About this RNA
The family of this 114-nucleotide RNA sequence is "drum RNA". It is annotated as a small RNA. Firmicutes, Bacteroidetes (1 example), Proteobacteria (2 examples), Spirochaetes (2 examples).
RNA sequence: UGGCUUCGAAGCAGUUGACUGUUUCGGUAUGCAGCCAAUUGUGGAGCCUGACCUUGGGUUAUGCGAUAACCUCAAACCGAAUAGGUUCUUCGGAGCUGAAAGAAAACGCUUUUA
Numbered sequence: 001u002g003g004c005u006u007c008g009a010a011g012c013a014g015u016u017g018a019c020u021g022u023u024u025c026g027g028u029a030u031g032c033a034g035c036c037a038a039u040u041g042u043g044g045a046g047c048c049u050g051a052c053c054u055u056g057g058g059u060u061a062u063g064c065g066a067u068a069a070c071c072u073c074a075a076a077c078c079g080a081a082u083a084g085g086u087u088c089u090u091c092g093g094a095g096c097u098g099a100a101a102g103a104a105a106a107c108g109c110u111u112u113u114a
Base pairs, nucleotide, nucleotide: 002048003047004046011042012041013040014039015038016037017036019034020033021032022031024080025079026078027077063109064108065107084097085096086095087094